The record is a 106-nucleotide sequence from Eremothecium gossypii, which matches "Small nucleolar RNA snR48" in Rfam.
The base pairs follow the family's consensus structure, which was predicted with ILM.
Taxonomically the source falls in Eremothecium gossypii (Eukaryota, Dikarya, saccharomyceta, Saccharomycotina).
RNA sequence: UUUCACAUGAUGAUCUAUUCUAGCUUUUUUCUGGCAUCUCUAAUGUUAGGAUGAGAAGUUUAAGUACUCUCCAUUCGAUGAAUACAACCUAUGACUAUAUCUGAAC
Numbered sequence: 001u002u003u004c005a006c007a008u009g010a011u012g013a014u015c016u017a018u019u020c021u022a023g024c025u026u027u028u029u030u031c032u033g034g035c036a037u038c039u040c041u042a043a044u045g046u047u048a049g050g051a052u053g054a055g056a057a058g059u060u061u062a063a064g065u066a067c068u069c070u071c072c073a074u075u076c077g078a079u080g081a082a083u084a085c086a087a088c089c090u091a092u093g094a095c096u097a098u099a100u101c102u103g104a105a106c
Base pairs, nucleotide, nucleotide: 050075051074052073053072